This 87-nucleotide RNA sequence from Pseudoduganella lurida belongs to the Rfam family "Glycine riboswitch aptamer". The base pairs follow the family's consensus structure. For this family Rfam cites "A glycine-dependent riboswitch that uses cooperative binding to control gene expression" (Mandal et al., Science, 2004). Gene Ontology term of the family: glycine biosynthetic process.
RNA sequence: UAGCCUUGACCGGGAGAGCGCAGCGCAGGCUGCCGCCGAAGGGGCAUCACCCGAAAACUCUCAGGCACAAUGGACCGGUCAGGGGCC
Number, nucleotide and partner (000 for none) at each position: 001u000002a000003g000004c000005c000006u082007u081008g080009a079010c078011c077012g076013g075014g000015a000016g000017a000018g000019c000020g033021c032022a031023g030024c000025g000026c000027a000028g000029g000030c023031u022032g021033c020034c000035g066036c065037c064038g062039a061040a000041g000042g060043g059044g058045c000046a000047u000048c053049a000050c000051c000052c000053g048054a000055a000056a000057a000058c044059u043060c042061u039062c038063a000064g037065g036066c035067a000068c000069a000070a000071u000072g000073g000074a000075c013076c012077g011078g010079u009080c008081a007082g006083g000084g000085g000086c000087c000